[Rfam]
Shown here is a 498-nucleotide sequence from Halogeometricum sp. CBA1124, a member of the family "Archaeal RNase P". Its family is annotated with tRNA processing, ribonuclease P activity and multimeric ribonuclease P complex in the Gene Ontology. Rfam describes the family as follows. Ribonuclease P (RNase P) is a ubiquitous endoribonuclease, found in archaea, bacteria and eukarya as well as chloroplasts and mitochondria. Its best characterised activity is the generation of mature 5'-ends of tRNAs by cleaving the 5'-leader elements of precursor-tRNAs. Cellular RNase Ps are ribonucleoproteins. RNA from bacterial RNase Ps retains its catalytic activity in the absence of the protein subunit, i.e. it is a ribozyme. On this family, see Frank and Pace, Annu Rev Biochem 1998: "Ribonuclease P: unity and diversity in a tRNA processing ribozyme". Clan: RNaseP clan.

RNA sequence: GGCAGAGAGAGCCCGGUUCCCGUGUCCUGUCGGACUGAUUACCGUCCGCGGACAUGAGGAAAGUCCCCCCACCGUCCGGACGGGUGACCGGGCGCAAGCCCGGAGUCGGAGAGACUGGCUCUGGAACAGAAACGAGACCCCUCGGUCCGACCGAUGAGACGCGUGCGGCGGACUCGUCCGCCGCCGACGCCCGCGGGGCGACCCGCGGGCGUGCGAACCGACCCGUAAGGGGAGGGAGUUGACCCGUCGAGGGACGCGAGGCGACGCAGUCGCCUCGGAGGACGAACGGACGCAUCGCGCCCGCGAGUCCAGCGGUCAUUUCGUGACCGUGGACGACCGAGAACGGAUGGAACGGCGAACCCUCACCGGUGCAAGUCCGCGCCGCUAAGGUAGUCCGGACAGCACGCUCGGGUUCGCCCGGCGUGCCCCCGAGAGGGGAGGACGCGGACGCUCAGCCGAAUGCCGGGACGAACAGAAGGGGGCUUACUCCUCUCAGCC
Numbered sequence: 001g002g003c004a005g006a007g008a009g010a011g012c013c014c015g016g017u018u019c020c021c022g023u024g025u026c027c028u029g030u031c032g033g034a035c036u037g038a039u040u041a042c043c044g045u046c047c048g049c050g051g052a053c054a055u056g057a058g059g060a061a062a063g064u065c066c067c068c069c070c071a072c073c074g075u076c077c078g079g080a081c082g083g084g085u086g087a088c089c090g091g092g093c094g095c096a097a098g099c100c101c102g103g104a105g106u107c108g109g110a111g112a113g114a115c116u117g118g119c120u121c122u123g124g125a126a127c128a129g130a131a132a133c134g135a136g137a138c139c140c141c142u143c144g145g146u147c148c149g150a151c152c153g154a155u156g157a158g159a160c161g162c163g164u165g166c167g168g169c170g171g172a173c174u175c176g177u178c179c180g181c182c183g184c185c186g187a188c189g190c191c192c193g194c195g196g197g198g199c200g201a202c203c204c205g206c207g208g209g210c211g212u213g214c215g216a217a218c219c220g221a222c223c224c225g226u227a228a229g230g231g232g233a234g235g236g237a238g239u240u241g242a243c244c245c246g247u248c249g250a251g252g253g254a255c256g257c258g259a260g261g262c263g264a265c266g267c268a269g270u271c272g273c274c275u276c277g278g279a280g281g282a283c284g285a286a287c288g289g290a291c292g293c294a295u296c297g298c299g300c301c302c303g304c305g306a307g308u309c310c311a312g313c314g315g316u317c318a319u320u321u322c323g324u325g326a327c328c329g330u331g332g333a334c335g336a337c338c339g340a341g342a343a344c345g346g347a348u349g350g351a352a353c354g355g356c357g358a359a360c361c362c363u364c365a366c367c368g369g370u371g372c373a374a375g376u377c378c379g380c381g382c383c384g385c386u387a388a389g390g391u392a393g394u395c396c397g398g399a400c401a402g403c404a405c406g407c408u409c410g411g412g413u414u415c416g417c418c419c420g421g422c423g424u425g426c427c428c429c430c431g432a433g434a435g436g437g438g439a440g441g442a443c444g445c446g447g448a449c450g451c452u453c454a455g456c457c458g459a460a461u462g463c464c465g466g467g468a469c470g471a472a473c474a475g476a477a478g479g480g481g482g483c484u485u486a487c488u489c490c491u492c493u494c495a496g497c498c
Base pairs, nucleotide, nucleotide: 001498002497003496005494006493007492008491009490010488011487012467013466014465015464016463017462021056022055023054024053025052026051027050061485062484063483065482066481067480068479069478070371071370072369073368083367084366085365086364087363088103089102090101091100092099104116105115106114107113117362118361122358124356138346139345141341142340143339144338145337146336147335375449376448377447378446379445380444381443383441